The family of this 122-nucleotide RNA sequence from Rattus norvegicus is "Small nucleolar RNA SNORA42/SNORA80 family".
Pairs were carried over by alignment from the consensus structure, which was predicted with RNAalifold.
Rfam 15.1 lists 1,535 matches to the family in 183 species.
NCBI's taxonomy places the organism under Eukaryota, Tetrapoda, Theria, Euarchontoglires, Rattus.
Rfam links the family to the GO terms RNA processing and nucleolus.
The members of this family belong to the H/ACA class of snoRNAs that guide the sites of modification of uridines to pseudouridines. Human ACA42 (SNORA42) was cloned from HeLa cells by immunoprecipitation with anti-GAR1 antibody. Its is predicted to guide the pseudouridylation of residues U109 and U572 of 18S rRNA. ACA42 shares the same host gene with ACA26, ACA46, ACA50. This family also includes mammalian snoRNA ACA67 (SNORA80) which was identified by computational screening and its expression in mouse experimentally verified by Northern blot and primer extension analysis.
RNA sequence: GUAUAACAAUAUUAUAAAAUGCUAUAGUUUUCAUAGUGUCCCGUGCUAGAGCAAACUGGCUCCUAACCAUUGCCCAGCCUUGGUGCAUGUAGGCUGCUGGCACUGAAGUGGGUCACACAGUG
Numbered sequence: 001g002u003a004u005a006a007c008a009a010u011a012u013u014a015u016a017a018a019a020u021g022c023u024a025u026a027g028u029u030u031u032c033a034u035a036g037u038g039u040c041c042c043g044u045g046c047u048a049g050a051g052c053a054a055a056c057u058g059g060c061u062c063c064u065a066a067c068c069a070u071u072g073c074c075c076a077g078c079c080u081u082g083g084u085g086c087a088u089g090u091a092g093g094c095u096g097c098u099g100g101c102a103c104u105g106a107a108g109u110g111g112g113u114c115a116c117a118c119a120g121u122g
Base pairs, nucleotide, nucleotide: 002035003034004033006031008029009028010027011025012024057115058114059113060112061111062110068105069104073100074099075096076095077094078093079092080091